[Rfam]
RNA sequence: UUCCGAUGAGGAAGACAUCCCAAGUAUAGGAAGUGCCGUAUGACACUCUAAAACGCAGCUUGUGU
Numbered sequence: 001u002u003c004c005g006a007u008g009a010g011g012a013a014g015a016c017a018u019c020c021c022a023a024g025u026a027u028a029g030g031a032a033g034u035g036c037c038g039u040a041u042g043a044c045a046c047u048c049u050a051a052a053a054c055g056c057a058g059c060u061u062g063u064g065u
Stems, first nucleotide, its partner, number of pairs: 014059001030049001032047004

Description:
This 65-nucleotide sequence from Handroanthus impetiginosus belongs to the Rfam family "Small nucleolar RNA U49". The match comes from Rfam's covariance-model search (57 bits). It is annotated as a C/D-box small nucleolar RNA.